RNA: Small nucleolar RNA Z103
RNA sequence: GAGGAUGUGAUGAUCCUUUCCCAGAUGAUGGACUAUGAACAUGCUGAGCGCCAUUGUUUCUCUUCAGAGAAACCAAGCCAGUAUUCUGAUCCUC
Numbered sequence: 001g002a003g004g005a006u007g008u009g010a011u012g013a014u015c016c017u018u019u020c021c022c023a024g025a026u027g028a029u030g031g032a033c034u035a036u037g038a039a040c041a042u043g044c045u046g047a048g049c050g051c052c053a054u055u056g057u058u059u060c061u062c063u064u065c066a067g068a069g070a071a072a073c074c075a076a077g078c079c080a081g082u083a084u085u086c087u088g089a090u091c092c093u094c
Stems, first nucleotide, its partner, number of pairs: 001094005